The record is an 86-nucleotide sequence from Actinotalea bogoriensis, which matches "ZMP/ZTP riboswitch aptamer (pfl RNA motif)" in Rfam.
[Rfam]
RNA sequence: UGUCACGGUCGCGACUGGCGAACGGGUGGGGCACCACCGGGGAGCGACGCACAGCAGACUUCGGGUCGUACGCCUGGGCCCUUCGG
Numbered sequence: 001u002g003u004c005a006c007g008g009u010c011g012c013g014a015c016u017g018g019c020g021a022a023c024g025g026g027u028g029g030g031g032c033a034c035c036a037c038c039g040g041g042g043a044g045c046g047a048c049g050c051a052c053a054g055c056a057g058a059c060u061u062c063g064g065g066u067c068g069u070a071c072g073c074c075u076g077g078g079c080c081c082u083u084c085g086g
Stems, first nucleotide, its partner, number of pairs: 003053001008048005015041002017074004026037004063081005